[Rfam]
RNA sequence: GACAGAGUAGGGGCGGCGCGUCAAGUGCCGACGGAUGGGAAGUUGCCGUCGGACGAAAGCGAAAGCAGAUAUGCUGGAACAUUGCUGCGGUGCCGUACCCGCAUCCGCUGCU
Numbered sequence: 001g002a003c004a005g006a007g008u009a010g011g012g013g014c015g016g017c018g019c020g021u022c023a024a025g026u027g028c029c030g031a032c033g034g035a036u037g038g039g040a041a042g043u044u045g046c047c048g049u050c051g052g053a054c055g056a057a058a059g060c061g062a063a064a065g066c067a068g069a070u071a072u073g074c075u076g077g078a079a080c081a082u083u084g085c086u087g088c089g090g091u092g093c094c095g096u097a098c099c100c101g102c103a104u105c106c107g108c109u110g111c112u
Stems, first nucleotide, its partner, number of pairs: 001112001003110003010100003013096006019089003025054002028052007038106003042102001058086004
THF (Tetrahydrofolate) riboswitch aptamer: a 112-nucleotide RNA sequence from Firmicutes bacterium CAG:238. Rfam's curators write: Tetrahydrofolate (THF) riboswitch was first reported for Ames et al. as an RNA motif in 5' untranslated (5'-UTR)regions of folate transport and biosynthesis genes in Firmicutes genomes.